[Rfam]
RNA sequence: AACCUGAGUAGAAGCGGUCAGCGCAGAUGCGUGCGCGGGACAUUGCUCAGCAA
Numbered sequence: 001a002a003c004c005u006g007a008g009u010a011g012a013a014g015c016g017g018u019c020a021g022c023g024c025a026g027a028u029g030c031g032u033g034c035g036c037g038g039g040a041c042a043u044u045g046c047u048c049a050g051c052a053a
Stems, first nucleotide, its partner, number of pairs: 005049006015038001018040002021036005
Shown here is a 53-nucleotide RNA, a member of the family "Xanthine riboswitch aptamer (NMT1 RNA)". The family's consensus secondary structure is taken from published work. Gene Ontology term of the family: purine nucleobase binding.